Description: A member of the RNA family "MIR2619 microRNA precursor family" from Medicago truncatula, 151 nucleotides long. The organism belongs to Medicago, within Eukaryota.
RNA sequence: AAACCGCCCCCUAAGUAUUGACUAUUUUGCAGUUUUGGCCCCUCAAACCAAUUUUGACAAAGUCACAUGGACGCCACGUGUGCAUUGACUUGGUCAAAAUUGGUCUGAGGGGCCAAAACUGCAAAAAAAAUCAAUACUUAGGGGGCGGUUU
Numbered sequence: 001a002a003a004c005c006g007c008c009c010c011c012u013a014a015g016u017a018u019u020g021a022c023u024a025u026u027u028u029g030c031a032g033u034u035u036u037g038g039c040c041c042c043u044c045a046a047a048c049c050a051a052u053u054u055u056g057a058c059a060a061a062g063u064c065a066c067a068u069g070g071a072c073g074c075c076a077c078g079u080g081u082g083c084a085u086u087g088a089c090u091u092g093g094u095c096a097a098a099a100u101u102g103g104u105c106u107g108a109g110g111g112g113c114c115a116a117a118a119c120u121g122c123a124a125a126a127a128a129a130a131u132c133a134a135u136a137c138u139u140a141g142g143g144g145g146c147g148g149u150u151u
Stems, first nucleotide, its partner, number of pairs: 001151002004148005012140010023129001025126021065079002068076003